[Rfam]
RNA sequence: GCUUCACUUGCCUGUCGCGCUACCUCAGUACUUCAGCUGUGUUUUUCAUGCCGUCAGCCAGGUACCUGAAGUAGCGCGCGAGGCGGGUGUAA
Numbered sequence: 001g002c003u004u005c006a007c008u009u010g011c012c013u014g015u016c017g018c019g020c021u022a023c024c025u026c027a028g029u030a031c032u033u034c035a036g037c038u039g040u041g042u043u044u045u046u047c048a049u050g051c052c053g054u055c056a057g058c059c060a061g062g063u064a065c066c067u068g069a070a071g072u073a074g075c076g077c078g079c080g081a082g083g084c085g086g087g088u089g090u091a092a
Stems, first nucleotide, its partner, number of pairs: 009085004016078007030063003036058003
RNA: mir-275 microRNA precursor family
Organism: Diaphorina citri